Source information: Rfam assigns this 151-nucleotide sequence to the family "Bacteroidete tryptophan peptide leader RNA". Its family is annotated with S-adenosylmethionine metabolic process and regulation of gene expression in the Gene Ontology. The match comes from Rfam's covariance-model search (55 bits). Rfam classes the family as a cis-regulatory leader.

RNA sequence: UUUUAAAUAAAUAUAAUAAAAUAUGUACAUAAAAUAUAUGUACCUACAGGUGGUCCCCGACUUACGAUGGAUUUCGCGGAAUGUACCCCCAUCGUAAGUCGGGGACCACCUGUAUGUACAUAUUUUAUUAUAUUUAUAAAAAAUACUUAUU
Numbered sequence: 001u002u003u004u005a006a007a008u009a010a011a012u013a014u015a016a017u018a019a020a021a022u023a024u025g026u027a028c029a030u031a032a033a034a035u036a037u038a039u040g041u042a043c044c045u046a047c048a049g050g051u052g053g054u055c056c057c058c059g060a061c062u063u064a065c066g067a068u069g070g071a072u073u074u075c076g077c078g079g080a081a082u083g084u085a086c087c088c089c090c091a092u093c094g095u096a097a098g099u100c101g102g103g104g105a106c107c108a109c110c111u112g113u114a115u116g117u118a119c120a121u122a123u124u125u126u127a128u129u130a131u132a133u134u135u136a137u138a139a140a141a142a143a144u145a146c147u148u149a150u151u
Base pairs, nucleotide, nucleotide: 036123037122038121040119041118042117043116045114046113047112049110050109051108052107056104057102059100060099061098065094067092068091069090